The record is a 168-nucleotide RNA from Nostoc sp. 'Peltigera malacea cyanobiont' DB3992, which matches "Ribosomal protein L10 leader" in Rfam.
Rfam describes the family as follows. This family is a putative r-protein leader autoregulatory structure found in B. subtilis and other low-GC Gram-positive bacteria. It is located in the 5' untranslated regions of mRNAs encoding ribosomal proteins L10 and L12 (rplJ-rplL). A Rho-independent transcription terminator structure that is probably involved in regulation is included at the 3' end.
Pairs were carried over by alignment from the consensus structure, which was predicted with CMfinder.
Rfam links the family to the GO term regulation of gene expression.
Lineage of the source: Bacteria > Bacillati > Cyanophyceae > Nostoc > Nostoc cyanobionts.

[Rfam]
Nucleotides: 168
Base pairs, nucleotide, nucleotide: 028054029053030052031051032050034042035041036040133153134152135151136150137149138148139147140146141145
Number, partner (000 for none) and nucleotide at each position: 001000a002000a003000a004000a005000u006000u007000a008000a009000a010000u011000a012000g013000g014000c015000a016000a017000a018000g019000c020000c021000g022000g023000a024000g025000a026000c027000a028054g029053c030052a031051g032050g033000u034042g035041c036040u037000a038000a039000u040036a041035g042034c043000u044000u045000a046000a047000u048000a049000u050032c051031c052030u053029g054028c055000c056000g057000a058000g059000g060000u061000u062000a063000a064000a065000a066000c067000u068000c069000u070000a071000a072000u073000a074000g075000u076000c077000a078000a079000a080000a081000u082000u083000a084000c085000c086000a087000c088000c089000c090000c091000u092000a093000a094000a095000g096000g097000u098000g099000u100000g101000a102000u103000a104000a105000c106000u107000a108000u109000g110000g111000c112000g113000u114000c115000a116000a117000g118000a119000g120000u121000c122000u123000u124000a125000a126000u127000a128000c129000u130000c131000a132000a133153c134152c135151c136150c137149g138148g139147c140146u141145a142000a143000a144000u145141u146140a147139g148138c149137u150136g151135g152134g153133g154000u155000u156000u157000g158000u159000u160000g161000u162000u163000u164000g165000g166000g167000u168000u